[Rfam]
Source information
This 484-nucleotide sequence from Dasypus novemcinctus belongs to the Rfam family "FGF-2 internal ribosome entry site (IRES)". It is one of the family's seed sequences. The organism belongs to Dasypus, within Eukaryota. The base pairs follow the family's consensus structure, which was predicted with PFOLD. A reference for the family is Creancier et al. (2000), "Fibroblast growth factor 2 internal ribosome entry site (IRES) activity ex vivo and in transgenic mice reveals a stringent tissue-specific regulation", J Cell Biol. This family represents the fibroblast growth factor 2 (FGF-2) internal ribosome entry site (IRES). When expressed the FGF-2 protein plays a pivotal role in cell proliferation, differentiation and survival as well as being involved in wound-healing. It has been found that FGF-2 IRES activity is strictly controlled and highly tissue specific.
RNA sequence: CUGCGGUCGUAGCACCCGGUUCCGAGGCCGGCCCCUGAAAACCCCGAGCGAGGAGGGGGCGGCGCAGAGGAGGGAGGAGAGCUGGGGGCGCGGGAGGCCGGUGGGUGUUUGGGGGUGGAGAUGUAGAAAAUGUGACGCCGCAGCCAGGCCGGUGCCAGACCAGCGGACGCGGUGCCCGCGGUCGCAACCCGAUCCCCGACGCUGCCGCUUGCGGAGGUGGCUCUGCCGAGAGCGGCGGCGGCGCAGCCACCCAGCCCAAACCCCAGCUCCCGGCCGCCGGGUCUCCACGGCCGGCGCGGAGGAGCCGCCGAGCAGCGCGAGGCUGGGGGCCCGCGGGCGCGGCCGCACGCAGCGCGGCGGGAGGCUGGGGGGCCGGGGCCGCGCCCUGGAGCGAGUCGGAGGCCGCGGCCGGGGCCGUGGGGCGGCGGCUCCCCGCGCCGCUCCGGGGGCUCGGGUGCCCCGACAGGGCCCCGGCGGGGCCAUG
Numbered sequence: 001c002u003g004c005g006g007u008c009g010u011a012g013c014a015c016c017c018g019g020u021u022c023c024g025a026g027g028c029c030g031g032c033c034c035c036u037g038a039a040a041a042c043c044c045c046g047a048g049c050g051a052g053g054a055g056g057g058g059g060c061g062g063c064g065c066a067g068a069g070g071a072g073g074g075a076g077g078a079g080a081g082c083u084g085g086g087g088g089c090g091c092g093g094g095a096g097g098c099c100g101g102u103g104g105g106u107g108u109u110u111g112g113g114g115g116u117g118g119a120g121a122u123g124u125a126g127a128a129a130a131u132g133u134g135a136c137g138c139c140g141c142a143g144c145c146a147g148g149c150c151g152g153u154g155c156c157a158g159a160c161c162a163g164c165g166g167a168c169g170c171g172g173u174g175c176c177c178g179c180g181g182u183c184g185c186a187a188c189c190c191g192a193u194c195c196c197c198g199a200c201g202c203u204g205c206c207g208c209u210u211g212c213g214g215a216g217g218u219g220g221c222u223c224u225g226c227c228g229a230g231a232g233c234g235g236c237g238g239c240g241g242c243g244c245a246g247c248c249a250c251c252c253a254g255c256c257c258a259a260a261c262c263c264c265a266g267c268u269c270c271c272g273g274c275c276g277c278c279g280g281g282u283c284u285c286c287a288c289g290g291c292c293g294g295c296g297c298g299g300a301g302g303a304g305c306c307g308c309c310g311a312g313c314a315g316c317g318c319g320a321g322g323c324u325g326g327g328g329g330c331c332c333g334c335g336g337g338c339g340c341g342g343c344c345g346c347a348c349g350c351a352g353c354g355c356g357g358c359g360g361g362a363g364g365c366u367g368g369g370g371g372g373c374c375g376g377g378g379c380c381g382c383g384c385c386c387u388g389g390a391g392c393g394a395g396u397c398g399g400a401g402g403c404c405g406c407g408g409c410c411g412g413g414g415c416c417g418u419g420g421g422g423c424g425g426c427g428g429c430u431c432c433c434c435g436c437g438c439c440g441c442u443c444c445g446g447g448g449g450c451u452c453g454g455g456u457g458c459c460c461c462g463a464c465a466g467g468g469c470c471c472c473g474g475c476g477g478g479g480c481c482a483u484g
Base pairs, nucleotide, nucleotide: 029375030374031373032372033371034370035369044360045359046358059353060352062350063349064348082266083265084264085263086262087261090257092256102253103252104251105250106249107248144191148179149178151176152175153174154173155172156171196241197240198239200237201236202235203234204233205232211227213226215224216223217222271319272318273316274315276295277294278293279292280291385395387393388392405472407470408469409468410467416466435452437450438449453461454460455459